[Rfam]
RNA sequence: AGAGAUCACAAGCAUGAGGCCACAGCGGAAGCACUCAAGGUGUUGCCGUGUCAGAUUCCAAUGAAUUAGCAAAUUCUGCU
Numbered sequence: 001a002g003a004g005a006u007c008a009c010a011a012g013c014a015u016g017a018g019g020c021c022a023c024a025g026c027g028g029a030a031g032c033a034c035u036c037a038a039g040g041u042g043u044u045g046c047c048g049u050g051u052c053a054g055a056u057u058c059c060a061a062u063g064a065a066u067u068a069g070c071a072a073a074u075u076c077u078g079c080u
Stems, first nucleotide, its partner, number of pairs: 013048001018047003024080007031043003052069001054067005

This 80-nucleotide RNA from Crocodylus porosus belongs to the Rfam family "Mammalian CPEB3 ribozyme". Pairs were carried over by alignment from the consensus structure, which is taken from published work. A search with the family's covariance model found it, with a score of 35 bits.